[Rfam]
Pistol ribozyme: a 67-nucleotide RNA sequence from Anaerotruncus colihominis. The base pairs follow the family's consensus structure, which is taken from published work. The organism belongs to Anaerotruncus, within Bacteria. The literature on the family includes a 2015 paper in Nat Chem Biol by Weinberg et al., "New classes of self-cleaving ribozymes revealed by comparative genomics analysis".
RNA sequence: CGUCGAUGCGGCGACGGUAAAUAGGGCAUUAGGCCGCAAGCGUGGGCGGAGAAUCCGCCCGGUUGCC
Numbered sequence: 001c002g003u004c005g006a007u008g009c010g011g012c013g014a015c016g017g018u019a020a021a022u023a024g025g026g027c028a029u030u031a032g033g034c035c036g037c038a039a040g041c042g043u044g045g046g047c048g049g050a051g052a053a054u055c056c057g058c059c060c061g062g063u064u065g066c067c
Stems, first nucleotide, its partner, number of pairs: 001016004007038005025067004033041001043061007